[Rfam]
Eukaryotic large subunit ribosomal RNA: a 478-nucleotide part of an RNA from Medioppia subpectinata.
RNA sequence: CAGGUGGAACCACGAAGUGUGCUGGGAAGAGGAUUCAACUGUUGUGGCGCGAGCAGUCGCCGGCGUCGUAUUAGGUUCUCUUCGGAGGGCAGGCGCCGGUAACACGUUUUCGCCAUGCGGUGCAUUUCUUCACUCCCAUGCUAAAGCCAUGACCGAUUAGAUGGCUAGUGCGUCCGUAUGCGAUGGUCACGGGAAGGUAGCUGGGUGCGUCUUCGGAUGUAUGCUAGUGUUAUAGCCCGUGGCUGGUUUACGAGCACUUAGUGUACUGAUUGGCUCAAUUUCUCCACUUAUGUGGGGUUUGCAGUAAUGGGUGCGUACAGUUCGGCGGUCGAGAGUGUGUCUGUUUGGUGGCUCUUUUUGUGCUUUCGUACGAAAAGACUGUCUUACCGAUGGCUCUAUGCUGAUUGUUGUAUCUGUGCGUACUUGUGCAAUCGAUGGCUAGUAGGUCGGUAUCUACCUGACCCGUCUUGAAACACGG
Numbered sequence: 001c002a003g004g005u006g007g008a009a010c011c012a013c014g015a016a017g018u019g020u021g022c023u024g025g026g027a028a029g030a031g032g033a034u035u036c037a038a039c040u041g042u043u044g045u046g047g048c049g050c051g052a053g054c055a056g057u058c059g060c061c062g063g064c065g066u067c068g069u070a071u072u073a074g075g076u077u078c079u080c081u082u083c084g085g086a087g088g089g090c091a092g093g094c095g096c097c098g099g100u101a102a103c104a105c106g107u108u109u110u111c112g113c114c115a116u117g118c119g120g121u122g123c124a125u126u127u128c129u130u131c132a133c134u135c136c137c138a139u140g141c142u143a144a145a146g147c148c149a150u151g152a153c154c155g156a157u158u159a160g161a162u163g164g165c166u167a168g169u170g171c172g173u174c175c176g177u178a179u180g181c182g183a184u185g186g187u188c189a190c191g192g193g194a195a196g197g198u199a200g201c202u203g204g205g206u207g208c209g210u211c212u213u214c215g216g217a218u219g220u221a222u223g224c225u226a227g228u229g230u231u232a233u234a235g236c237c238c239g240u241g242g243c244u245g246g247u248u249u250a251c252g253a254g255c256a257c258u259u260a261g262u263g264u265a266c267u268g269a270u271u272g273g274c275u276c277a278a279u280u281u282c283u284c285c286a287c288u289u290a291u292g293u294g295g296g297g298u299u300u301g302c303a304g305u306a307a308u309g310g311g312u313g314c315g316u317a318c319a320g321u322u323c324g325g326c327g328g329u330c331g332a333g334a335g336u337g338u339g340u341c342u343g344u345u346u347g348g349u350g351g352c353u354c355u356u357u358u359u360g361u362g363c364u365u366u367c368g369u370a371c372g373a374a375a376a377g378a379c380u381g382u383c384u385u386a387c388c389g390a391u392g393g394c395u396c397u398a399u400g401c402u403g404a405u406u407g408u409u410g411u412a413u414c415u416g417u418g419c420g421u422a423c424u425u426g427u428g429c430a431a432u433c434g435a436u437g438g439c440u441a442g443u444a445g446g447u448c449g450g451u452a453u454c455u456a457c458c459u460g461a462c463c464c465g466u467c468u469u470g471a472a473a474c475a476c477g478g
Stems, first nucleotide, its partner, number of pairs: 001460008009451003463478004
Dot-bracket structure: (((((((((((.....................................................................................................................................................................................................................................................................................................................................................................................................................................................))).))))))))..((((........))))

The base pairs follow the family's consensus structure, which is taken from published work.